[Rfam]
RNA sequence: AUCUUAUUCAGAGUUGGCGGAGAUACAAGGAUCUGUGAUGCCACGGCAACCCCUAUAUGGAAGGUGCCCACCUGAGCGAGCAAUCGAUCAAUAAGAU
Numbered sequence: 001a002u003c004u005u006a007u008u009c010a011g012a013g014u015u016g017g018c019g020g021a022g023a024u025a026c027a028a029g030g031a032u033c034u035g036u037g038a039u040g041c042c043a044c045g046g047c048a049a050c051c052c053c054u055a056u057a058u059g060g061a062a063g064g065u066g067c068c069c070a071c072c073u074g075a076g077c078g079a080g081c082a083a084u085c086g087a088u089c090a091a092u093a094a095g096a097u
Stems, first nucleotide, its partner, number of pairs: 001097008013044001015043004022033003030073001045068004050064002052060002077086003
RNA: SAM riboswitch aptamer (S box leader)